Eukaryotic large subunit ribosomal RNA: a 434-nucleotide part of an RNA from Chloropicon primus. It scores 3298 bits against the family's covariance model. A reference for the family is Yusupov et al. (2001), "Crystal structure of the ribosome at 5.5 A resolution", Science.

[Rfam]
RNA sequence: GGUAGUAGCAAAUAUUCAAAUGAGAACUUUGAAGGCCGAAGUGGAGAAAGGUUCCAUGUGAACAGCAUUUGGACAUGGGUUAGUCGAUCCUAAGAGAUGGGUUAACGCCGUAUUAAGAGCGCAAUUUGCGCUGCCCAUCGAAAGGGAAUCGGGUUAAUAUUCCCGAACCAGGAUGUGGUGGCGGACGGUAACGUAAGCGAGCCCGGAGACAUCGGCGAAGGCCCUGGGAAGAGUUCUCUUUUCUUUUUAACAGUUCGCAAGCCCUGGAAUCGGUUUACCCGGAGAUAGGGCCCAGUAACUGGUAAAGCACCGCACGUCUCGCGGUGUCCGGCGCGCCUUUGACGGUCCUUGAAAAUCUGGGGGAGCGGAUACCAAUCACGCCUGGUCGUACUCAUAACCGCAUCAGGUCUCCAAGGUGAACAGCCUCUGGCCGA
Numbered sequence: 001g002g003u004a005g006u007a008g009c010a011a012a013u014a015u016u017c018a019a020a021u022g023a024g025a026a027c028u029u030u031g032a033a034g035g036c037c038g039a040a041g042u043g044g045a046g047a048a049a050g051g052u053u054c055c056a057u058g059u060g061a062a063c064a065g066c067a068u069u070u071g072g073a074c075a076u077g078g079g080u081u082a083g084u085c086g087a088u089c090c091u092a093a094g095a096g097a098u099g100g101g102u103u104a105a106c107g108c109c110g111u112a113u114u115a116a117g118a119g120c121g122c123a124a125u126u127u128g129c130g131c132u133g134c135c136c137a138u139c140g141a142a143a144g145g146g147a148a149u150c151g152g153g154u155u156a157a158u159a160u161u162c163c164c165g166a167a168c169c170a171g172g173a174u175g176u177g178g179u180g181g182c183g184g185a186c187g188g189u190a191a192c193g194u195a196a197g198c199g200a201g202c203c204c205g206g207a208g209a210c211a212u213c214g215g216c217g218a219a220g221g222c223c224c225u226g227g228g229a230a231g232a233g234u235u236c237u238c239u240u241u242u243c244u245u246u247u248u249a250a251c252a253g254u255u256c257g258c259a260a261g262c263c264c265u266g267g268a269a270u271c272g273g274u275u276u277a278c279c280c281g282g283a284g285a286u287a288g289g290g291c292c293c294a295g296u297a298a299c300u301g302g303u304a305a306a307g308c309a310c311c312g313c314a315c316g317u318c319u320c321g322c323g324g325u326g327u328c329c330g331g332c333g334c335g336c337c338u339u340u341g342a343c344g345g346u347c348c349u350u351g352a353a354a355a356u357c358u359g360g361g362g363g364a365g366c367g368g369a370u371a372c373c374a375a376u377c378a379c380g381c382c383u384g385g386u387c388g389u390a391c392u393c394a395u396a397a398c399c400g401c402a403u404c405a406g407g408u409c410u411c412c413a414a415g416g417u418g419a420a421c422a423g424c425c426u427c428u429g430g431c432c433g434a
Base pairs, nucleotide, nucleotide: 015033016032017031018030019029020028034432035431036430037429043412044411045410046409049392050391054078055077056076057075058074059073063071064070085388086387087386089145090144094139095138097111098110100109101108102107119131120130121129149166150165151164152163153162169384170383171382172381174380175379176378177377178376179374180373185194186193187192202361203360204359205358206357207356211346212345213344214343216341217340218339219338220337221336222335224331225330226329227247228246229245230244231243232242251301252300253299254298255297261291262290263289264288265287266286270282271281272280273279308326309325310324311323312322313321398407399406414426415425416424417423
The base pairs follow the family's consensus structure, which is taken from published work.